[Rfam]
RNA: U1 spliceosomal RNA
RNA sequence: CAUCUUACCUGGCAGGGAGAUACCAUGAUCACGAAGGUGGUUCUCCCAGGCGAGGCUCACCCAUGCACUCCGGUGUGUUGACCCCGCGAUUUCCCCAAAUGCGGGAAAGUCGACUGCAAAUUUAUGGUAGUGGGGGACUGCGUUCGCGCUACCCUGA
Dot-bracket structure: ...........(((((.(((.(((((..........)))))))).)(.((.(.(((.((((..........)))).)))..))).)((((((.((.......)).))).))).))))...............((((...(((....)))..))))..